[Rfam]
RNA sequence: GGGACAUAUGAUGAGAAACUUAUGUCACUCACGACGGUCGUCUGAGACACUUUGUGUGUAAUGCUGCAAUCAAAUAUUCUCUGAUGUCC
Numbered sequence: 001g002g003g004a005c006a007u008a009u010g011a012u013g014a015g016a017a018a019c020u021u022a023u024g025u026c027a028c029u030c031a032c033g034a035c036g037g038u039c040g041u042c043u044g045a046g047a048c049a050c051u052u053u054g055u056g057u058g059u060a061a062u063g064c065u066g067c068a069a070u071c072a073a074a075u076a077u078u079c080u081c082u083g084a085u086g087u088c089c
Base pairs, nucleotide, nucleotide: 001089002088003087048056049055050054
Small nucleolar RNA Z161/Z228: an 89-nucleotide RNA from Aegilops tauschii. Lineage of the source: Eukaryota > Streptophyta > commelinids > Poaceae > Aegilops tauschii. Rfam links the family to the GO terms nucleolus and RNA processing. A reference for the family is Chen et al. (2003), "The high diversity of snoRNAs in plants: identification and comparative study of 120 snoRNA genes from Oryza sativa", Nucleic Acids Res.